Shown here is a 75-nucleotide RNA sequence from Myotis lucifugus, a member of the family "mir-9193 microRNA precursor family".
RNA sequence: CUCGGGGGCGGGGGGGUCCCUCAGCCCACAUUGCAAGAGGGUGCAGGCCAGUCCAAGGGACCCCACCAGUGCAGG
Numbered sequence: 001c002u003c004g005g006g007g008g009c010g011g012g013g014g015g016g017u018c019c020c021u022c023a024g025c026c027c028a029c030a031u032u033g034c035a036a037g038a039g040g041g042u043g044c045a046g047g048c049c050a051g052u053c054c055a056a057g058g059g060a061c062c063c064c065a066c067c068a069g070u071g072c073a074g075g
Stems, first nucleotide, its partner, number of pairs: 004072001006070001010067002013064009024053001026051001031046005
The organism belongs to Myotis, within Eukaryota.